[Rfam]
RNA sequence: CUUGUUUCAAUGACGACCUGUCUGAAAACUUCUUUUUAGAAAGCUGGGCAGCGUCUGACAGCUGACAAG
Numbered sequence: 001c002u003u004g005u006u007u008c009a010a011u012g013a014c015g016a017c018c019u020g021u022c023u024g025a026a027a028a029c030u031u032c033u034u035u036u037u038a039g040a041a042a043g044c045u046g047g048g049c050a051g052c053g054u055c056u057g058a059c060a061g062c063u064g065a066c067a068a069g
Stems, first nucleotide, its partner, number of pairs: 001069005015055003018051007030041003